The family of this 124-nucleotide sequence from Gossypium harknessii is "MIR7504 microRNA precursor family".
[Rfam]
RNA sequence: AAUAGGAGAAUGACAAAUCAAACUUUUUCUCCUGAUUUUUAGCAUUUUUAGUUGGAUUUAAAUUUUGUAAGGAGGAAAAAAACUGAAAAUCAGGAGUAAAAAAUUGAUUUGUCAUUCUUCUAUU
Numbered sequence: 001a002a003u004a005g006g007a008g009a010a011u012g013a014c015a016a017a018u019c020a021a022a023c024u025u026u027u028u029c030u031c032c033u034g035a036u037u038u039u040u041a042g043c044a045u046u047u048u049u050a051g052u053u054g055g056a057u058u059u060a061a062a063u064u065u066u067g068u069a070a071g072g073a074g075g076a077a078a079a080a081a082a083c084u085g086a087a088a089a090u091c092a093g094g095a096g097u098a099a100a101a102a103a104u105u106g107a108u109u110u111g112u113c114a115u116u117c118u119u120c121u122a123u124u
Base pairs, nucleotide, nucleotide: 001124002123003122004121005120006119007118008117009116010115011114012113013112014111015110016109017108018107019106020105021104024101025100026099027098029096030095031094032093033092034091035090036089037088038087039086041084042083045080046079047078048077